[Rfam]
RNA sequence: AGGUGAGGUAGAGGUCGCGGUUUUGAAUAGUACUUUGUAUGAGAUGGAGAGUUUCGACACCACUUACGUCGUAGUAAACAUCAAGGACUACAUAGGAAAGGCACAACCGCCGAAGCAAACUACAUACUCUCAUGUAGUUUUGCUGGGACUGUUACCGAAUAGGGACAGGACUGUCACAAACCAUGUCGCAUAUGGUUUGUGUUGAGCUAUCUUAGCG
Numbered sequence: 001a002g003g004u005g006a007g008g009u010a011g012a013g014g015u016c017g018c019g020g021u022u023u024u025g026a027a028u029a030g031u032a033c034u035u036u037g038u039a040u041g042a043g044a045u046g047g048a049g050a051g052u053u054u055c056g057a058c059a060c061c062a063c064u065u066a067c068g069u070c071g072u073a074g075u076a077a078a079c080a081u082c083a084a085g086g087a088c089u090a091c092a093u094a095g096g097a098a099a100g101g102c103a104c105a106a107c108c109g110c111c112g113a114a115g116c117a118a119a120c121u122a123c124a125u126a127c128u129c130u131c132a133u134g135u136a137g138u139u140u141u142g143c144u145g146g147g148a149c150u151g152u153u154a155c156c157g158a159a160u161a162g163g164g165a166c167a168g169g170a171c172u173g174u175c176a177c178a179a180a181c182c183a184u185g186u187c188g189c190a191u192a193u194g195g196u197u198u199g200u201g202u203u204g205a206g207c208u209a210u211c212u213u214a215g216c217g
Base pairs, nucleotide, nucleotide: 006212007211008210009209010208011207017110018109019108020107021106022105024103025102033095034094036092037091038090039089114144115143116142117141118139119138120137121136122135123134124133125132145172146171149168150167151166152165153164155162175201176200177199178198179197180196181195182194183193
Shown here is a 217-nucleotide RNA from Baia soyae, a member of the family "Lysine riboswitch aptamer". Taxonomically the source falls in Baia (Bacteria, Bacillati, Bacillota, Bacilli).